[Rfam]
RNA sequence: AUAUACACUGUGUGGCCAGAUGAUUAUGAUCUCUGAACAUAUAAUCAUCUGGCCACUCAGUGUAUAU
Numbered sequence: 001a002u003a004u005a006c007a008c009u010g011u012g013u014g015g016c017c018a019g020a021u022g023a024u025u026a027u028g029a030u031c032u033c034u035g036a037a038c039a040u041a042u043a044a045u046c047a048u049c050u051g052g053c054c055a056c057u058c059a060g061u062g063u064a065u066a067u
Stems, first nucleotide, its partner, number of pairs: 004064007012056006019049010
RNA: mir-9256 microRNA precursor family